[Rfam]
RNA sequence: AAUAAAUGGUCUUCUGUUAAAAUUUGUCAUAUCCUGUGGCAAACACAGAAGUCAGAACAACCUAUUCA
Number, nucleotide and partner (000 for none) at each position: 001a000002a000003u000004a000005a000006a000007u000008g000009g000010u000011c051012u050013u049014c048015u047016g046017u045018u000019a000020a000021a000022a000023u000024u000025u000026g040027u039028c038029a037030u036031a000032u000033c000034c000035u000036g030037u029038g028039g027040c026041a000042a000043a000044c000045a017046c016047a015048g014049a013050a012051g011052u000053c000054a000055g067056a066057a065058c000059a000060a000061c000062c000063u000064a000065u057066u056067c055068a000
RNA: Bacillaceae-1 RNA